[Rfam]
RNA sequence: GCCGGACCUAGCGCUUUAUGCUAGGUGGCUCGGCCCGGCGCCUAUCCCCGGGAUAACC
Dot-bracket structure: .....((((((.........)))))).......(((((.........)))))......

The family of this 58-nucleotide RNA from Sphingobium xenophagum is "sul1 RNA". It scores 49 bits against the family's covariance model. The family has 54 seed sequences and 519 matches in Rfam 15.1. The source organism's lineage runs through Bacteria, Alphaproteobacteria, Sphingomonadales, Sphingobiaceae and Sphingobium.